This 134-nucleotide sequence from Otolemur garnettii belongs to the Rfam family "U11 spliceosomal RNA". Pairs were carried over by alignment from the consensus structure, which is taken from published work. The source organism's lineage runs through Eukaryota, Bilateria, Euteleostomi, Strepsirrhini and Otolemur.
RNA sequence: AAAAAGGGCUUCUGUUGUGAGUGGCACAACUGGGGCAACUUGCCUACUCUUCGUUUGGAAUUGACAUCAAGAGAUUUUGGAAGCAUAAUUUUUUGGUACCUGGGCAGCUGAUGAUCAUUGAUUCUGGUGUCCCC
Numbered sequence: 001a002a003a004a005a006g007g008g009c010u011u012c013u014g015u016u017g018u019g020a021g022u023g024g025c026a027c028a029a030c031u032g033g034g035g036c037a038a039c040u041u042g043c044c045u046a047c048u049c050u051u052c053g054u055u056u057g058g059a060a061u062u063g064a065c066a067u068c069a070a071g072a073g074a075u076u077u078u079g080g081a082a083g084c085a086u087a088a089u090u091u092u093u094u095g096g097u098a099c100c101u102g103g104g105c106a107g108c109u110g111a112u113g114a115u116c117a118u119u120g121a122u123u124c125u126g127g128u129g130u131c132c133c134c
Stems, first nucleotide, its partner, number of pairs: 008084005013026005028054001032050004037045001056079007102132004107128004113123004